[Rfam]
RNA sequence: GCAAUAAGGGCGUUUGGUGGAUGCCUUGGCGGUAAGAGGCGAUGAAGGACGUGGCACGCUGCGUUAAGUCUCGGGGAGUUGCGAGCAGACUUUGAUCCGAGAAUAUCCGAAUGGGGAAACCCACCUUUACAGACCCUGGCGGUCGCUCGUCCGAGCAAUCGGACGGUCGGUCACCAGAGUUUGUGAAAGGUAUCUAAACCUGAAUACAUAGGGUUUUAGAAGCGAACCCGGGGAACUGAAACAUCUCAGUACCUGGAGGAAAGGACAUCAAUUGAGACUCCCUCAGUAGCGGCGAGCGAACGGGGACCAGGCCAAUGUCUCUCUCUGCAUCAGCGGAACGGUUUGGAAAGGCCGGCCAUAGUGGGUGAUAGCCCCGUACGUUAAAAUAAAGAGAGAGAAUUCGAGUAGGGCGGGACACGUGAAAUCCUGUCUGAACAUGGGGGGACCACCCUCCAAGCCUAAGUACUCCUUACCGACCGAUAGCGAACCAGUACCGUGAGGGAAAGGUGAAAAGCACCCCAACGAGGGGAGUGAAACAGACCCUGAAACCGGACGCCUACAAG
Numbered sequence: 001g002c003a004a005u006a007a008g009g010g011c012g013u014u015u016g017g018u019g020g021a022u023g024c025c026u027u028g029g030c031g032g033u034a035a036g037a038g039g040c041g042a043u044g045a046a047g048g049a050c051g052u053g054g055c056a057c058g059c060u061g062c063g064u065u066a067a068g069u070c071u072c073g074g075g076g077a078g079u080u081g082c083g084a085g086c087a088g089a090c091u092u093u094g095a096u097c098c099g100a101g102a103a104u105a106u107c108c109g110a111a112u113g114g115g116g117a118a119a120c121c122c123a124c125c126u127u128u129a130c131a132g133a134c135c136c137u138g139g140c141g142g143u144c145g146c147u148c149g150u151c152c153g154a155g156c157a158a159u160c161g162g163a164c165g166g167u168c169g170g171u172c173a174c175c176a177g178a179g180u181u182u183g184u185g186a187a188a189g190g191u192a193u194c195u196a197a198a199c200c201u202g203a204a205u206a207c208a209u210a211g212g213g214u215u216u217u218a219g220a221a222g223c224g225a226a227c228c229c230g231g232g233g234a235a236c237u238g239a240a241a242c243a244u245c246u247c248a249g250u251a252c253c254u255g256g257a258g259g260a261a262a263g264g265a266c267a268u269c270a271a272u273u274g275a276g277a278c279u280c281c282c283u284c285a286g287u288a289g290c291g292g293c294g295a296g297c298g299a300a301c302g303g304g305g306a307c308c309a310g311g312c313c314a315a316u317g318u319c320u321c322u323c324u325c326u327g328c329a330u331c332a333g334c335g336g337a338a339c340g341g342u343u344u345g346g347a348a349a350g351g352c353c354g355g356c357c358a359u360a361g362u363g364g365g366u367g368a369u370a371g372c373c374c375c376g377u378a379c380g381u382u383a384a385a386a387u388a389a390a391g392a393g394a395g396a397g398a399a400u401u402c403g404a405g406u407a408g409g410g411c412g413g414g415a416c417a418c419g420u421g422a423a424a425u426c427c428u429g430u431c432u433g434a435a436c437a438u439g440g441g442g443g444g445a446c447c448a449c450c451c452u453c454c455a456a457g458c459c460u461a462a463g464u465a466c467u468c469c470u471u472a473c474c475g476a477c478c479g480a481u482a483g484c485g486a487a488c489c490a491g492u493a494c495c496g497u498g499a500g501g502g503a504a505a506g507g508u509g510a511a512a513a514g515c516a517c518c519c520c521a522a523c524g525a526g527g528g529g530a531g532u533g534a535a536a537c538a539g540a541c542c543c544u545g546a547a548a549c550c551g552g553a554c555g556c557c558u559a560c561a562a563g
Stems, first nucleotide, its partner, number of pairs: 008558010023543001024507002028478002030475007037467002039223002047108003050063003069102007078090003113122003123191006193220003196216006227258001228256005238245002268275002278463001279306005289297002309460004319397008329387002333381003339354005357361001363375003408432008439454005494501002517529004
Bacterial large subunit ribosomal RNA: a 563-nucleotide part of an RNA from Glycocaulis alkaliphilus. The match comes from Rfam's covariance-model search (2750 bits). The family is grouped with related families in Rfam's "LSU clan".